[Rfam]
RNA sequence: UGAGUAUGAAAGAUGGUCGCGGGCGUAAGCCGUCCGAGGAAAGUCCGAGCUCCAUAGGGCAGGGUGCUGGAUAACGUCCAGCGAGGGUGACCUUAGGGAAAGUGCCACAGAAAGAAACCGCCUGCUUCGGCAGGUAAGGGUGCAACGGUGCGGUAAGAGCGCACCAGCAGUCAGGUGACUGGCUGGCUAGGUAAACCCCACCUGGAGCAAGAUCGAAUAGGGAAGUGAUGAAGCGGCCCGCUGAGUCUUCCGGGUUGUAUCGCUGGAGCCGACAGGCAACUGUCGGCCUAGAUAGAUGACCAUCACCGCCGACAGGCGGAACAAAACUCGGCUUAUUGAUUACUCAUGUG
Numbered sequence: 001u002g003a004g005u006a007u008g009a010a011a012g013a014u015g016g017u018c019g020c021g022g023g024c025g026u027a028a029g030c031c032g033u034c035c036g037a038g039g040a041a042a043g044u045c046c047g048a049g050c051u052c053c054a055u056a057g058g059g060c061a062g063g064g065u066g067c068u069g070g071a072u073a074a075c076g077u078c079c080a081g082c083g084a085g086g087g088u089g090a091c092c093u094u095a096g097g098g099a100a101a102g103u104g105c106c107a108c109a110g111a112a113a114g115a116a117a118c119c120g121c122c123u124g125c126u127u128c129g130g131c132a133g134g135u136a137a138g139g140g141u142g143c144a145a146c147g148g149u150g151c152g153g154u155a156a157g158a159g160c161g162c163a164c165c166a167g168c169a170g171u172c173a174g175g176u177g178a179c180u181g182g183c184u185g186g187c188u189a190g191g192u193a194a195a196c197c198c199c200a201c202c203u204g205g206a207g208c209a210a211g212a213u214c215g216a217a218u219a220g221g222g223a224a225g226u227g228a229u230g231a232a233g234c235g236g237c238c239c240g241c242u243g244a245g246u247c248u249u250c251c252g253g254g255u256u257g258u259a260u261c262g263c264u265g266g267a268g269c270c271g272a273c274a275g276g277c278a279a280c281u282g283u284c285g286g287c288c289u290a291g292a293u294a295g296a297u298g299a300c301c302a303u304c305a306c307c308g309c310c311g312a313c314a315g316g317c318g319g320a321a322c323a324a325a326a327c328u329c330g331g332c333u334u335a336u337u338g339a340u341u342a343c344u345c346a347u348g349u350g
Stems, first nucleotide, its partner, number of pairs: 001346006010337002012304007020036006041334003045331005050207004057239004062203005067081005082096001083094004097198002102196002104192003118139002120135006147165006167187001168185007211261003214257001221251005232242003268287008
RNA: Bacterial RNase P class A
Organism: Anaerosporomusa subterranea